[Rfam]
Shown here is a 305-nucleotide RNA from Ipomoea nil, a member of the family "Plant signal recognition particle RNA". Its Rfam clan is "SRP clan". The organism belongs to Ipomoea, within Eukaryota.
RNA sequence: GCUGGGCUUGGUAGCGCAAGCCUGUAACCCGAGCGGGAGCAUUAAGAUGGUGGAACAAUUGGGCUUGCUCUGAUGGCUGGGCUUUGGGGUGCUAUCUCCUGGCCUGCCCGUUCCAAGUGGUGAGAUGGGCCGUGUAGUCUCCGCUAAAGUGGAGGCGUCUCGGCCCUUAGAUUGGAGGGCACCGCGUGAGGCUGGCUUCACAAAGCAGCGAAAACCUCCUUCUCUCUGCAGUGGAGGGAUAACAGGCCGGUGCAACCUUGGUCCACUAUAGCCUGAUGCGCUGCCCAACUUGAACCACCAUCUUU
Numbered sequence: 001g002c003u004g005g006g007c008u009u010g011g012u013a014g015c016g017c018a019a020g021c022c023u024g025u026a027a028c029c030c031g032a033g034c035g036g037g038a039g040c041a042u043u044a045a046g047a048u049g050g051u052g053g054a055a056c057a058a059u060u061g062g063g064c065u066u067g068c069u070c071u072g073a074u075g076g077c078u079g080g081g082c083u084u085u086g087g088g089g090u091g092c093u094a095u096c097u098c099c100u101g102g103c104c105u106g107c108c109c110g111u112u113c114c115a116a117g118u119g120g121u122g123a124g125a126u127g128g129g130c131c132g133u134g135u136a137g138u139c140u141c142c143g144c145u146a147a148a149g150u151g152g153a154g155g156c157g158u159c160u161c162g163g164c165c166c167u168u169a170g171a172u173u174g175g176a177g178g179g180c181a182c183c184g185c186g187u188g189a190g191g192c193u194g195g196c197u198u199c200a201c202a203a204a205g206c207a208g209c210g211a212a213a214a215c216c217u218c219c220u221u222c223u224c225u226c227u228g229c230a231g232u233g234g235a236g237g238g239a240u241a242a243c244a245g246g247c248c249g250g251u252g253c254a255a256c257c258u259u260g261g262u263c264c265a266c267u268a269u270a271g272c273c274u275g276a277u278g279c280g281c282u283g284c285c286c287a288a289c290u291u292g293a294a295c296c297a298c299c300a301u302c303u304u305u
Base pairs, nucleotide, nucleotide: 001040002039003038004023005022006021007020008019009018010017028037029036030035044304045303046302047301048300049299050298051297052296053295056292057291059288060287062285063284064283070278075273076272077271078270079264080263081262082261083260086257087256090254091253093252094251099250100249101248102247103246104245105244106243108238109237111236112235113234114233115232117229118228119227120226122224123223124222125221127166128165129164130163131162132161134159137156138155139154140153141152142151143150144149174219175218176217177216178215185210186209187208193202194201
Dot-bracket structure: ((((((((((......)))))))....(((....))))))...((((((((((..((.((.(((.....(....(((((((((..((..((.((....((((((((.((.(((((.((((.((((.((((((.(..((((((((....))))))))..).)))))).......(((((......(((.....((......)).....)))....))))).)))).))))..)))))))....)))))))))))).))..))))).....))))....)....))).))..))..)))))))))).

The family's consensus secondary structure is taken from published work. Its family is annotated with SRP-dependent cotranslational protein targeting to membrane, signal sequence recognition and signal recognition particle, endoplasmic reticulum targeting in the Gene Ontology.